[Rfam]
RNA sequence: UCGUGAGGUCGCGACUGGCGUUGAGGUGGGCAACCACCGGGGAGCGAAAGACAUCGCAGCGGCCGUACGCCUGGGCCGCCCGA
Numbered sequence: 001u002c003g004u005g006a007g008g009u010c011g012c013g014a015c016u017g018g019c020g021u022u023g024a025g026g027u028g029g030g031c032a033a034c035c036a037c038c039g040g041g042g043a044g045c046g047a048a049a050g051a052c053a054u055c056g057c058a059g060c061g062g063c064c065g066u067a068c069g070c071c072u073g074g075g076c077c078g079c080c081c082g083a
Stems, first nucleotide, its partner, number of pairs: 003052002009047004015041002017071005026037004060078005
Rfam assigns this 83-nucleotide RNA sequence from Salinibacterium sp. dk2585 to the family "ZMP/ZTP riboswitch aptamer (pfl RNA motif)". Rfam 15.1 lists 3,295 matches to the family in 2,545 species. Lineage of the source: Bacteria > Bacillati > Actinomycetota > Microbacteriaceae > Salinibacterium.